RNA: FMN riboswitch aptamer (RFN element)
RNA sequence: AACGUGCUCCGGGGUCGGUGAGAAUCCGAACCGGCGGUGACAGUCCGCGAACAGACGACGCAUCCCCAGGAUGAGUCCGACGUAGAUCCGGUGAAAUUCCGGAACCGACGGUGAUGCGAGGCGAAGCCUCGCUAGUCCGGAUGAGAGGCAGCACGCA
Numbered sequence: 001a002a003c004g005u006g007c008u009c010c011g012g013g014g015u016c017g018g019u020g021a022g023a024a025u026c027c028g029a030a031c032c033g034g035c036g037g038u039g040a041c042a043g044u045c046c047g048c049g050a051a052c053a054g055a056c057g058a059c060g061c062a063u064c065c066c067c068a069g070g071a072u073g074a075g076u077c078c079g080a081c082g083u084a085g086a087u088c089c090g091g092u093g094a095a096a097u098u099c100c101g102g103a104a105c106c107g108a109c110g111g112u113g114a115u116g117c118g119a120g121g122c123g124a125a126g127c128c129u130c131g132c133u134a135g136u137c138c139g140g141a142u143g144a145g146a147g148g149c150a151g152c153a154c155g156c157a
Stems, first nucleotide, its partner, number of pairs: 003155006009147001016028003032107002034048004043105002051083002087103005109139003